[Rfam]
RNA: c-di-AMP riboswitch aptamer (ydaO/yuaA leader)
Organism: Paenibacillus sp. MY03
Nucleotides: 169
Base pairs, nucleotide, nucleotide: 011154012153013152014151018041019040020039021038022037023036024035042149043148044147045146046145047144052084085134086133087132093109094108095107096106112128113127114126115125
Number, partner (000 for none) and nucleotide at each position: 001000a002000u003000c004000a005000u006000a007000a008000a009000u010000u011154c012153g013152c014151u015000g016000a017000g018041u019040c020039u021038u022037c023036u024035u025000g026000a027000g028000g029000a030000c031000a032000a033000u034000g035024a036023a037022g038021a039020a040019g041018a042149g043148c044147g045146g046145g047144g048000g049000a050000a051000c052084c053000a054000a055000a056000c057000g058000g059000c060000g061000c062000u063000u064000a065000u066000c067000g068000u069000u070000a071000a072000a073000g074000a075000c076000a077000a078000g079000c080000g081000u082000c083000a084052g085134g086133g087132g088000u089000g090000a091000a092000u093109c094108g095107g096106c097000a098000u099000a100000a101000c102000a103000a104000c105000c106096g107095c108094c109093g110000u111000a112128g113127g114126g115125c116000u117000a118000u119000c120000u121000a122000a123000u124000g125115g126114c127113c128112c129000g130000a131000a132087u133086c134085c135000g136000u137000c138000a139000g140000c141000u142000a143000a144047c145046c146045u147044c148043g149042u150000a151014a152013g153012c154011g155000u156000u157000a158000u159000u160000g161000g162000a163000a164000u165000g166000g167000g168000u169000a